[Rfam]
RNA: mir-263 microRNA precursor family
Organism: Pieris brassicae
RNA sequence: CUACGUUGGGUCUUGGCACUGGGAGAAUUCACAGGAGUUAUAUUACCCGUGAAUUUCCUGAUGCCUCAGCCCAAUGUCU
Numbered sequence: 001c002u003a004c005g006u007u008g009g010g011u012c013u014u015g016g017c018a019c020u021g022g023g024a025g026a027a028u029u030c031a032c033a034g035g036a037g038u039u040a041u042a043u044u045a046c047c048c049g050u051g052a053a054u055u056u057c058c059u060g061a062u063g064c065c066u067c068a069g070c071c072c073a074a075u076g077u078c079u
Base pairs, nucleotide, nucleotide: 003077004076005075006074007073008072009071010070015065016064017063018062020060021059022058023056025055026054029052030051031050032049034047